This 88-nucleotide sequence from Nicotiana attenuata belongs to the Rfam family "Small nucleolar RNA R11/Z151". It is annotated as a C/D-box small nucleolar RNA. Taxonomically the source falls in Nicotiana (Eukaryota, Viridiplantae, Magnoliopsida, Gunneridae).
[Rfam]
RNA sequence: GGGCUUAUGAUGAUAAAUUCAAAUUAUCUUAGCGGAUUUCAGUGAGAUUUAACUAUCAAUGAUCUGAUUGUUACACACACUGAGGCCU
Numbered sequence: 001g002g003g004c005u006u007a008u009g010a011u012g013a014u015a016a017a018u019u020c021a022a023a024u025u026a027u028c029u030u031a032g033c034g035g036a037u038u039u040c041a042g043u044g045a046g047a048u049u050u051a052a053c054u055a056u057c058a059a060u061g062a063u064c065u066g067a068u069u070g071u072u073a074c075a076c077a078c079a080c081u082g083a084g085g086c087c088u
Stems, first nucleotide, its partner, number of pairs: 001088005
The family's consensus secondary structure was predicted with PFOLD. The match comes from Rfam's covariance-model search (91 bits).